[Rfam]
RNA sequence: CCCACACUUAUGUGUGUAGGACUCCAAAGGAUCACCAUUAAAUUUGGUACAAAUCUCUAAAAAAGUUAUCAUAUGGGUGUGGGACUUAACUUUUCUAGAGAUCUGUAUCAAAUUUAAUGGUGAUCCUUUGGGGUCCUACACACAUGAGCGUGGG
Numbered sequence: 001c002c003c004a005c006a007c008u009u010a011u012g013u014g015u016g017u018a019g020g021a022c023u024c025c026a027a028a029g030g031a032u033c034a035c036c037a038u039u040a041a042a043u044u045u046g047g048u049a050c051a052a053a054u055c056u057c058u059a060a061a062a063a064a065g066u067u068a069u070c071a072u073a074u075g076g077g078u079g080u081g082g083g084a085c086u087u088a089a090c091u092u093u094u095c096u097a098g099a100g101a102u103c104u105g106u107a108u109c110a111a112a113u114u115u116a117a118u119g120g121u122g123a124u125c126c127u128u129u130g131g132g133g134u135c136c137u138a139c140a141c142a143c144a145u146g147a148g149c150g151u152g153g154g
Base pairs, nucleotide, nucleotide: 002153003152004151005150007148008147009146010145011144012143013142015140016139017138018137019136020135021134022133023132024131025130026129027128028127030125031124032123034121035120036119037118038117039116040115041114042113043112044111045110046109047108048107049106050105051104053102054101055100056099057098058097059096061094062093063092064091065090066089067088068087069082070081071080072079073078
About this RNA: This 154-nucleotide RNA sequence from Amborella trichopoda belongs to the Rfam family "MIR8565 microRNA precursor family". It scores 152 bits against the family's covariance model. Rfam links the family to the GO terms miRNA-mediated post-transcriptional gene silencing and RISC complex.